[Rfam]
A member of the RNA family "Bacterial large subunit ribosomal RNA" from Bulleidia extructa, 375 nucleotides of a longer RNA.

RNA sequence: GAGAUGUAGGUGAGAAUCCUACACACCGAUAGACCAAGGUUUCCAGGGGAAGGUUCGUCCGCCCUGGGUAAGUCGGGACCUAAGGCCAGGCCGAGAGGCGUAGUCGAUGGACAGCAGGUUGAUAUUCCUGCACCCGCGGAUCAAGUGAAGGAGUGACAGAAAAGGUUAACCAGACCCCUUAAUGGAUUGGGGAUUGUAAGGAGGAGAGGCUGAUAGGGAAAUCCGUCAGCGGGAUCAAAGCCUUGCAGGGAGUGAACGCGCGAGCAAGUAACGAAGAUGGUGAUACCGGUUCUCAAGAAAAGCUUCUAGCGUUAAUUGAUCAGUGGCCCGUACCAAAACCGACACAGGUGGUCAAGGCGAAUAGCCUAAGGUGAG
Number, nucleotide and partner (000 for none) at each position: 001g000002a000003g000004a000005u023006g022007u021008a020009g019010g018011u000012g000013a000014g000015a000016a000017u000018c010019c009020u008021a007022c006023a005024c373025a372026c371027c370028g000029a000030u000031a000032g353033a352034c351035c350036a000037a000038g334039g333040u000041u000042u000043c067044c066045a065046g064047g063048g062049g000050a000051a000052g060053g059054u000055u000056c000057g000058u000059c053060c052061g000062c048063c047064c046065u045066g044067g043068g000069u000070a000071a000072g000073u000074c330075g329076g328077g327078a000079c110080c109081u000082a000083a000084g105085g104086c103087c000088a101089g000090g099091c098092c097093g000094a000095g000096a000097g092098g091099c090100g000101u088102a000103g086104u085105c084106g000107a000108u000109g080110g079111a000112c000113a000114g131115c130116a129117g128118g127119u000120u000121g000122a000123u000124a000125u000126u000127c118128c117129u116130g115131c114132a000133c000134c326135c325136g324137c323138g000139g321140a320141u319142c318143a317144a316145g310146u309147g000148a000149a307150g306151g305152a304153g303154u302155g000156a000157c000158a293159g292160a291161a290162a000163a000164g287165g286166u285167u000168a000169a281170c280171c279172a278173g000174a000175c192176c191177c190178c189179u000180u000181a000182a000183u000184g000185g000186a000187u000188u000189g178190g177191g176192g175193a000194u249195u248196g000197u000198a244199a243200g242201g241202a000203g000204g000205a000206g236207a235208g000209g230210c229211u228212g227213a226214u225215a000216g224217g223218g000219a000220a000221a000222u000223c217224c216225g214226u213227c212228a211229g210230c209231g000232g000233g000234a000235u207236c206237a000238a000239a000240g000241c201242c200243u199244u198245g000246c000247a000248g195249g194250g000251a000252g272253u271254g000255a269256a000257c000258g000259c000260g000261c000262g000263a000264g000265c000266a000267a000268g000269u255270a000271a253272c252273g000274a000275a000276g000277a000278u172279g171280g170281u169282g000283a000284u000285a166286c165287c164288g000289g000290u161291u160292c159293u158294c000295a000296a000297g000298a000299a000300a000301a000302g154303c153304u152305u151306c150307u149308a000309g146310c145311g000312u000313u000314a000315a000316u144317u143318g142319a141320u140321c139322a000323g137324u136325g135326g134327c077328c076329c075330g074331u000332a000333c039334c038335a000336a000337a000338a000339c348340c347341g000342a000343c000344a000345c000346a000347g340348g339349u000350g035351g034352u033353c032354a000355a367356g366357g365358c364359g000360a000361a000362u000363a000364g358365c357366c356367u355368a000369a000370g027371g026372u025373g024374a000375g000
NCBI's taxonomy places the organism under Bacteria, Bacillota, Erysipelotrichia, Erysipelotrichales, Bulleidia extructa.